The family of this 79-nucleotide RNA from Chiloscyllium punctatum is "mir-148/mir-152 microRNA precursor family". The match comes from Rfam's covariance-model search (61 bits). Rfam 15.1 lists 1,272 matches to the family in 609 species. Gene Ontology terms of the family: RISC complex and miRNA-mediated post-transcriptional gene silencing. A reference for the family is Chen et al. (2005), "The developmental miRNA profiles of zebrafish as determined by small RNA cloning", Genes Dev.
[Rfam]
RNA sequence: UCCAAGCCGAAGGUUCUGUCAUACACUCUGGCUCUGUAACUGAAAAAAAAGUCAGUGCAUGACAGAACUUUGUUUUGGA
Numbered sequence: 001u002c003c004a005a006g007c008c009g010a011a012g013g014u015u016c017u018g019u020c021a022u023a024c025a026c027u028c029u030g031g032c033u034c035u036g037u038a039a040c041u042g043a044a045a046a047a048a049a050a051g052u053c054a055g056u057g058c059a060u061g062a063c064a065g066a067a068c069u070u071u072g073u074u075u076u077g078g079a
Stems, first nucleotide, its partner, number of pairs: 004075004010071009024057004030053004